[Rfam]
RNA sequence: GGAUGUGAGGGCGAUCUGGUUGCGACAUCUGUCACCCCAUUGAUCGCUAGGGUUGAUUCGGCUGAUCUGGCUGGCUAGGCGGGUGUCCCCUUCCUCCCUCACCGCUCCAUGUGUGUCCCUCCCGAAGCUCCGCGCUCGGUGGAAGAGGACGAUUCCCGCGGACCAACGUCGGUAUAGAAGUAGCUGCGCUCCCCUGCUAGAACCUCCAAACAAGCUCAAGGCCCAUUUGUAGGAGAAACGUAGGGAAGUCGAGCUCCAAGACUUCAGACACAUCCAAAUGAGGCACUGCAUGUGGCAGUCUGCCUUUCUUU
Numbered sequence: 001g002g003a004u005g006u007g008a009g010g011g012c013g014a015u016c017u018g019g020u021u022g023c024g025a026c027a028u029c030u031g032u033c034a035c036c037c038c039a040u041u042g043a044u045c046g047c048u049a050g051g052g053u054u055g056a057u058u059c060g061g062c063u064g065a066u067c068u069g070g071c072u073g074g075c076u077a078g079g080c081g082g083g084u085g086u087c088c089c090c091u092u093c094c095u096c097c098c099u100c101a102c103c104g105c106u107c108c109a110u111g112u113g114u115g116u117c118c119c120u121c122c123c124g125a126a127g128c129u130c131c132g133c134g135c136u137c138g139g140u141g142g143a144a145g146a147g148g149a150c151g152a153u154u155c156c157c158g159c160g161g162a163c164c165a166a167c168g169u170c171g172g173u174a175u176a177g178a179a180g181u182a183g184c185u186g187c188g189c190u191c192c193c194c195u196g197c198u199a200g201a202a203c204c205u206c207c208a209a210a211c212a213a214g215c216u217c218a219a220g221g222c223c224c225a226u227u228u229g230u231a232g233g234a235g236a237a238a239c240g241u242a243g244g245g246a247a248g249u250c251g252a253g254c255u256c257c258a259a260g261a262c263u264u265c266a267g268a269c270a271c272a273u274c275c276a277a278a279u280g281a282g283g284c285a286c287u288g289c290a291u292g293u294g295g296c297a298g299u300c301u302g303c304c305u306u307u308c309u310u311u
Stems, first nucleotide, its partner, number of pairs: 001108003005102007013093002018090002024087010035074002037070003042067004046062003116152002122139004127135002183254003189248002192245006204235004210230005276311003280306005285299005